[Rfam]
RNA sequence: GAAAUUGUCGUCUUCUGCCGACAGCAGCGCCUGAAUGAAAUGAGGCGGGAUUUCGGCGAAUUUGAUGGGAGAACGGCGCAUCUCGCCGAAUUCGGCAAUCAGCUUGUUGUCGCUGCUGUAGACCCGCAGGGGGAUCUGCAACUGCACGCUCUUCAGGGCAUCAACAGACGGCAGGCUGGGGCUAAGAUACAGGUACGCACCGCUCAGACCGAGCAGCAGGCCACAGAAAAUAGCGACGAAGGACCACCAGAAAAACUUCAGCAGGCGUAUCAAGGCUUUUGGAUUUCCAGAUAA
Number, nucleotide and partner (000 for none) at each position: 001g000002a000003a000004a000005u000006u000007g000008u000009c000010g172011u171012c170013u000014u168015c167016u166017g165018c000019c000020g162021a161022c000023a000024g046025c045026a000027g000028c042029g041030c000031c000032u000033g000034a000035a000036u000037g000038a000039a000040a000041u029042g028043a000044g000045g025046c024047g084048g083049g082050a081051u080052u000053u000054c078055g077056g000057c075058g074059a000060a000061u070062u069063u000064g000065a000066u000067g000068g000069g062070a061071g000072a000073a000074c058075g057076g000077c055078g054079c000080a051081u050082c049083u048084c047085g000086c095087c094088g093089a000090a000091u000092u000093c088094g087095g086096c000097a000098a000099u000100c000101a000102g159103c158104u157105u155106g154107u000108u148109g147110u146111c000112g000113c000114u000115g142116c000117u140118g139119u138120a137121g136122a135123c133124c132125c131126g000127c000128a000129g000130g000131g125132g124133g123134a000135u122136c121137u120138g119139c118140a117141a000142c115143u000144g000145c000146a110147c109148g108149c000150u000151c000152u000153u000154c106155a105156g000157g104158g103159c102160a000161u021162c020163a000164a000165c017166a016167g015168a014169c000170g012171g011172c010173a000174g000175g000176c290177u289178g288179g287180g286181g285182c000183u283184a000185a000186g279187a278188u000189a000190c000191a000192g000193g000194u000195a000196c000197g268198c267199a000200c265201c264202g262203c261204u260205c000206a258207g257208a000209c000210c000211g000212a000213g000214c238215a000216g000217c235218a000219g000220g000221c000222c000223a000224c000225a000226g000227a000228a000229a000230a000231u000232a000233g000234c000235g217236a000237c000238g214239a000240a000241g000242g000243a000244c000245c000246a000247c000248c000249a000250g000251a000252a000253a000254a000255a000256c000257u207258u206259c000260a204261g203262c202263a000264g201265g200266c000267g198268u197269a000270u000271c000272a000273a000274g000275g000276c000277u000278u187279u186280u000281g000282g000283a183284u000285u181286u180287c179288c178289a177290g176291a000292u000293a000294a000
RNA: anti ponA RNA